[Rfam]
RNA sequence: ACCGGGCGUCGUGGCGGGCGUCUGUGAGCCAGCUUCUUGGCGGUAGAUAAGUGUGGAUGAAGUGAGGGGAGGAGUCCUGUAUGUGUCGCUUACAACGUCGACCGAGCGUCCGUGCCAAGCGCUGCGUCGCCAGGGGUCAUCCGGCGGAGGCUGGGCGGUCCCGGGCGCUUAAGGAGUGGUGUAUGGCUCAGGGCCGUGAGGCAGCAGGCAAAAGCUACCGCGCGGUGCAGUGGCCGGAUCGCGCUUGUGAGUUGUUACGCACAUACAGCCUUCCCGAUACCUUCAGACCGCUUGUCGU
Numbered sequence: 001a002c003c004g005g006g007c008g009u010c011g012u013g014g015c016g017g018g019c020g021u022c023u024g025u026g027a028g029c030c031a032g033c034u035u036c037u038u039g040g041c042g043g044u045a046g047a048u049a050a051g052u053g054u055g056g057a058u059g060a061a062g063u064g065a066g067g068g069g070a071g072g073a074g075u076c077c078u079g080u081a082u083g084u085g086u087c088g089c090u091u092a093c094a095a096c097g098u099c100g101a102c103c104g105a106g107c108g109u110c111c112g113u114g115c116c117a118a119g120c121g122c123u124g125c126g127u128c129g130c131c132a133g134g135g136g137u138c139a140u141c142c143g144g145c146g147g148a149g150g151c152u153g154g155g156c157g158g159u160c161c162c163g164g165g166c167g168c169u170u171a172a173g174g175a176g177u178g179g180u181g182u183a184u185g186g187c188u189c190a191g192g193g194c195c196g197u198g199a200g201g202c203a204g205c206a207g208g209c210a211a212a213a214g215c216u217a218c219c220g221c222g223c224g225g226u227g228c229a230g231u232g233g234c235c236g237g238a239u240c241g242c243g244c245u246u247g248u249g250a251g252u253u254g255u256u257a258c259g260c261a262c263a264u265a266c267a268g269c270c271u272u273c274c275c276g277a278u279a280c281c282u283u284c285a286g287a288c289c290g291c292u293u294g295u296c297g298u
Stems, first nucleotide, its partner, number of pairs: 001044003004023007028041003046296008058285005066275007077268008087259002092255005098249001103247007110237002114234004119228009128167004133162006140155006168174002176218005186209003193202003
This 298-nucleotide RNA from Caenorhabditis japonica belongs to the Rfam family "Metazoan signal recognition particle RNA".
The family is grouped with related families in Rfam's "SRP clan".
It is annotated as a non-coding RNA gene.
NCBI's taxonomy places the organism under Eukaryota, Opisthokonta, Bilateria, Rhabditoidea, Caenorhabditis.
Rfam's curators write: The signal recognition particle (SRP) is a universally conserved ribonucleoprotein.